Rfam assigns this 295-nucleotide part of an RNA from Thermofilum pendens to the family "Archaeal large subunit ribosomal RNA". Rfam 15.1 lists 2,955 matches to the family in 1,139 species. Pairs were carried over by alignment from the consensus structure, which is taken from published work.
RNA sequence: GGCCGCCUGAGGGGAUGGUCCGCACAGUACGAGAGGAACUGCGGGCCGUGGCCUCUAGUGUACCGGUUGUCCGGCAGGGCACUGCCGGGCAGCCACGCCGCAAGGGGUAACCGCUGAAGGCAUCUAAGCGGGAAACCCACCCCGAGACGAGGCGGCCGCUCCCGAUCCGUUGCUCCCGGCGACGGGGGCUUUGGGUCGGGACGAGGGCACCCGUAGAAGACGGGGUUGAUGGGGUGGCGGUGUAUGCGCCGAGGGUUUCCGAGGCGCGAGCCGGCCACUCCCAAUAGCCCGAGGC
Numbered sequence: 001g002g003c004c005g006c007c008u009g010a011g012g013g014g015a016u017g018g019u020c021c022g023c024a025c026a027g028u029a030c031g032a033g034a035g036g037a038a039c040u041g042c043g044g045g046c047c048g049u050g051g052c053c054u055c056u057a058g059u060g061u062a063c064c065g066g067u068u069g070u071c072c073g074g075c076a077g078g079g080c081a082c083u084g085c086c087g088g089g090c091a092g093c094c095a096c097g098c099c100g101c102a103a104g105g106g107g108u109a110a111c112c113g114c115u116g117a118a119g120g121c122a123u124c125u126a127a128g129c130g131g132g133a134a135a136c137c138c139a140c141c142c143c144g145a146g147a148c149g150a151g152g153c154g155g156c157c158g159c160u161c162c163c164g165a166u167c168c169g170u171u172g173c174u175c176c177c178g179g180c181g182a183c184g185g186g187g188g189c190u191u192u193g194g195g196u197c198g199g200g201a202c203g204a205g206g207g208c209a210c211c212c213g214u215a216g217a218a219g220a221c222g223g224g225g226u227u228g229a230u231g232g233g234g235u236g237g238c239g240g241u242g243u244a245u246g247c248g249c250c251g252a253g254g255g256u257u258u259c260c261g262a263g264g265c266g267c268g269a270g271c272c273g274g275c276c277a278c279u280c281c282c283a284a285u286a287g288c289c290c291g292a293g294g295c
Stems, first nucleotide, its partner, number of pairs: 001157008011143004017047008048101005056095001058093001063088005068081005104138003111131005205290004210224004230283003233279005238273003243268001246267005253260001
NCBI's taxonomy places the organism under Archaea, Thermoproteota, Thermofilales, Thermofilum, Thermofilum pendens. Rfam's curators put it in the seed alignment.